mir-34 microRNA precursor family: a 72-nucleotide RNA sequence from Erpetoichthys calabaricus. For this family Rfam cites "Embryonic stem cell-specific MicroRNAs" (Houbaviy et al., Dev Cell, 2003). About the family: Human mir-34a was discovered computationally and later experimentally verified. The mature sequence is excised from the 5' arm of the hairpin. Its family is annotated with RISC complex and miRNA-mediated post-transcriptional gene silencing in the Gene Ontology. Pairs were carried over by alignment from the consensus structure, which was predicted with RNAalifold. Rfam 15.1 lists 2,256 matches to the family in 820 species.
[Rfam]
RNA sequence: GGUUUGUAGGCAGUGUAGUUAGCUGAUUGUUAUCAAUGCAUCUACAAUCACUAGCUAUACUACCAACACAAC
Number, nucleotide and partner (000 for none) at each position: 001g000002g000003u070004u000005u068006g067007u000008a000009g064010g063011c000012a061013g060014u059015g058016u057017a056018g055019u054020u053021a052022g051023c000024u050025g049026a048027u047028u046029g045030u044031u000032a000033u000034c000035a000036a000037u000038g000039c000040a000041u000042c000043u000044a030045c029046a028047a027048u026049c025050a024051c022052u021053a020054g019055c018056u017057a016058u015059a014060c013061u012062a000063c010064c009065a000066a000067c006068a005069c000070a003071a000072c000